[Rfam]
The family of this 149-nucleotide RNA sequence from Lathyrus oleraceus is "Small nucleolar RNA snoR145". A search with the family's covariance model found it, with a score of 101 bits. For this family Rfam cites "Mining small RNA sequencing data: a new approach to identify small nucleolar RNAs in Arabidopsis" (Chen and Wu, Nucleic Acids Res, 2009). Rfam classes the family as an H/ACA-box small nucleolar RNA.
RNA sequence: AUGCGAAGAUCCCAGCAGAGGCGAGUUACUCUUAUUAUUGAGGCCGCUCUAACUAUUAAUUUCAAUAACUUCGCACAUUGAAUUGCUGAAUCGUAGGAUACCCAAAUUUAUCUUGUUUUGGUGUAUCUUGAACCCUCGUCUACAUUUCU
Numbered sequence: 001a002u003g004c005g006a007a008g009a010u011c012c013c014a015g016c017a018g019a020g021g022c023g024a025g026u027u028a029c030u031c032u033u034a035u036u037a038u039u040g041a042g043g044c045c046g047c048u049c050u051a052a053c054u055a056u057u058a059a060u061u062u063c064a065a066u067a068a069c070u071u072c073g074c075a076c077a078u079u080g081a082a083u084u085g086c087u088g089a090a091u092c093g094u095a096g097g098a099u100a101c102c103c104a105a106a107u108u109u110a111u112c113u114u115g116u117u118u119u120g121g122u123g124u125a126u127c128u129u130g131a132a133c134c135c136u137c138g139u140c141u142a143c144a145u146u147u148c149u
Stems, first nucleotide, its partner, number of pairs: 003074006011020001013018001023049003029042003085140001087138003097127002100124002102121005